[Rfam]
RNA: ZMP/ZTP riboswitch aptamer (pfl RNA motif)
Organism: Longispora fulva
RNA sequence: UGUCAGGUACGCGACUGGCGCGGGUUGGGUGGACAUAACCACCGGGAAGCGACACUCGCCGAGCACCGUGCGCCUGGGUGCCGGGA
Numbered sequence: 001u002g003u004c005a006g007g008u009a010c011g012c013g014a015c016u017g018g019c020g021c022g023g024g025u026u027g028g029g030u031g032g033a034c035a036u037a038a039c040c041a042c043c044g045g046g047a048a049g050c051g052a053c054a055c056u057c058g059c060c061g062a063g064c065a066c067c068g069u070g071c072g073c074c075u076g077g078g079u080g081c082c083g084g085g086a
Stems, first nucleotide, its partner, number of pairs: 003058001005056002010051003015046002017074005029042004063081005